[Rfam]
RNA: L31-Firmicutes ribosomal protein leader
RNA sequence: CUCUGAUUAAAGAAUUAAUCAGGGCCGAAGGAG
Dot-bracket structure: ((((((((((....)))))))))).........